A member of the RNA family "Ribosomal S15 leader" from Candidatus Nitrotoga sp. AM1P, 118 nucleotides long. The match comes from Rfam's covariance-model search (40 bits). On this family, see Benard et al., Biochimie 1996: "Pseudoknot and translational control in the expression of the S15 ribosomal protein". The E. coli Ribosomal S15 gene 5' UTR can form two alternative structures. One that is a series of three hairpins, The other includes a pseudoknot. Its Rfam clan is "Ribosomal Protein S15 Leader clan".
RNA sequence: AGUAACCGCCGCAUUCGAGAGUAAAAUGCGGCACUUUUUUAUUUAGUGGAGUGUGAAUAUUAUGUCUAUUACGGCAGCGCAAAAAGCGCAAAUUGUGACUGAUUACCAACGAAUUAAA
Numbered sequence: 001a002g003u004a005a006c007c008g009c010c011g012c013a014u015u016c017g018a019g020a021g022u023a024a025a026a027u028g029c030g031g032c033a034c035u036u037u038u039u040u041a042u043u044u045a046g047u048g049g050a051g052u053g054u055g056a057a058u059a060u061u062a063u064g065u066c067u068a069u070u071a072c073g074g075c076a077g078c079g080c081a082a083a084a085a086g087c088g089c090a091a092a093u094u095g096u097g098a099c100u101g102a103u104u105a106c107c108a109a110c111g112a113a114u115u116a117a118a
Stems, first nucleotide, its partner, number of pairs: 008032008048072001050070004